[Rfam]
Nucleotides: 101
Base pairs, nucleotide, nucleotide: 008098009097010096027044029043030042031041032040058093059092060091061090062089063088064087067081068080069079
Number, partner (000 for none) and nucleotide at each position: 001000u002000g003000c004000a005000g006000u007000a008098g009097u010096g011000u012000g013000g014000g015000g016000a017000u018000u019000u020000u021000u022000u023000c024000g025000a026000u027044g028000c029043u030042g031041g032040c033000u034000u035000a036000u037000a038000a039000a040032g041031u042030c043029a044027c045000c046000u047000a048000u049000u050000a051000a052000u053000u054000a055000u056000u057000u058093g059092u060091u061090g062089c063088g064087u065000u066000u067081a068080c069079u070000a071000a072000g073000c074000c075000a076000a077000u078000a079069a080068g081067u082000a083000u084000a085000a086000u087064a088063c089062g090061c091060a092059a093058c094000a095000g096010c097009a098008c099000a100000g101000c